Annotation
Shown here is a 226-nucleotide RNA from Brucella rhizosphaerae, a member of the family "permuted transfer-messenger RNA". Rfam links the family to the GO term RNA catabolic process. From the family's description: Bacterial tmRNA, also known as 10Sa RNA or SsrA, is named for its dual tRNA and mRNA-like properties. Its role is to liberate the mRNA from a stalled ribosome. By type it is a non-coding RNA gene. The literature on the family includes a 1996 paper in RNA by Williams and Bartel, "Phylogenetic analysis of tmRNA secondary structure". The family's consensus secondary structure is taken from published work.
RNA sequence: GGUGAUAAAUGGACGAUGUAAUAAACCUAUUGGACCCGGGGGCGGUACCCGGCGCCUCCACCAGAACACAAGAUGCAUCAAGAGCAAGUUGUGCUGUGGCGGGGGCGAAAUAGGAUCGACAAGGGUGUAAAGAUCGCUCUUUUGCUCGGCAUGAUACCACCGUUAUCGGGUCAAUUGAGUAGUUGCAAAUGACAACAAAGCUCAGGGUUACGCUCUCGCUGCCUAA
Numbered sequence: 001g002g003u004g005a006u007a008a009a010u011g012g013a014c015g016a017u018g019u020a021a022u023a024a025a026c027c028u029a030u031u032g033g034a035c036c037c038g039g040g041g042g043c044g045g046u047a048c049c050c051g052g053c054g055c056c057u058c059c060a061c062c063a064g065a066a067c068a069c070a071a072g073a074u075g076c077a078u079c080a081a082g083a084g085c086a087a088g089u090u091g092u093g094c095u096g097u098g099g100c101g102g103g104g105g106c107g108a109a110a111u112a113g114g115a116u117c118g119a120c121a122a123g124g125g126u127g128u129a130a131a132g133a134u135c136g137c138u139c140u141u142u143u144g145c146u147c148g149g150c151a152u153g154a155u156a157c158c159a160c161c162g163u164u165a166u167c168g169g170g171u172c173a174a175u176u177g178a179g180u181a182g183u184u185g186c187a188a189a190u191g192a193c194a195a196c197a198a199a200g201c202u203c204a205g206g207g208u209u210a211c212g213c214u215c216u217c218g219c220u221g222c223c224u225a226a
Base pairs, nucleotide, nucleotide: 001146002145003144004143005142014136015135016134017133026125027124028123030122031121032120036052037051038050039049040048053107054106055105056104057103058102059101147162148161149160